[Rfam]
RNA sequence: GGGUGCUUGAGGCUAUCUGGCUUUGAGCAUUGACAAGGGUUCAGAUAGACGAAAGCCCCAGGAGAUAUUUCUAUCAACUGAGGCUGACGAAUGAACCUGAACAAUUCAGAUGUUAGUCUCUUCUUUGCAGGGAGGCAAGACAUGCUAACAAAAUAUG
Numbered sequence: 001g002g003g004u005g006c007u008u009g010a011g012g013c014u015a016u017c018u019g020g021c022u023u024u025g026a027g028c029a030u031u032g033a034c035a036a037g038g039g040u041u042c043a044g045a046u047a048g049a050c051g052a053a054a055g056c057c058c059c060a061g062g063a064g065a066u067a068u069u070u071c072u073a074u075c076a077a078c079u080g081a082g083g084c085u086g087a088c089g090a091a092u093g094a095a096c097c098u099g100a101a102c103a104a105u106u107c108a109g110a111u112g113u114u115a116g117u118c119u120c121u122u123c124u125u126u127g128c129a130g131g132g133a134g135g136c137a138a139g140a141c142a143u144g145c146u147a148a149c150a151a152a153a154u155a156u157g
Stems, first nucleotide, its partner, number of pairs: 001059003005056004011050001013048008022039001024038001060079002064075004080120005087113003092108004124148002128144002